[Rfam]
RNA sequence: UUGGCUUCAAUCAUAGUAUAGUGAUGGCUUGCACUGCUAAUACUUGAGUAGGUGUUUGUCCAUUUCGUUGAAGCCGAUAUUAUUGUUCCCCUCGCUAUCCGGUGCUUCAUCGAUGUUGUAAUCGGACGUCGGGGAACUACAGUU
Number, nucleotide and partner (000 for none) at each position: 001u000002u077003g075004g074005c073006u000007u000008c070009a069010a068011u067012c000013a065014u000015a000016g000017u000018a063019u062020a000021g060022u000023g000024a000025u000026g000027g000028c058029u000030u000031g055032c054033a053034c052035u051036g000037c000038u000039a000040a000041u000042a000043c000044u000045u000046g000047a000048g000049u000050a000051g035052g034053u033054g032055u031056u000057u000058g028059u000060c021061c000062a019063u018064u000065u013066c000067g011068u010069u009070g008071a000072a000073g005074c004075c003076g000077a002078u000079a000080u000081u000082a000083u000084u000085g137086u136087u135088c134089c133090c132091c131092u000093c128094g127095c000096u000097a000098u126099c125100c124101g123102g122103u000104g000105c000106u000107u000108c115109a114110u000111c000112g000113a000114u109115g108116u000117u000118g000119u000120a000121a000122u102123c101124g100125g099126a098127c094128g093129u000130c000131g091132g090133g089134g088135a087136a086137c085138u000139a000140c000141a000142g000143u000144u000
RNA: Small nucleolar RNA snoR136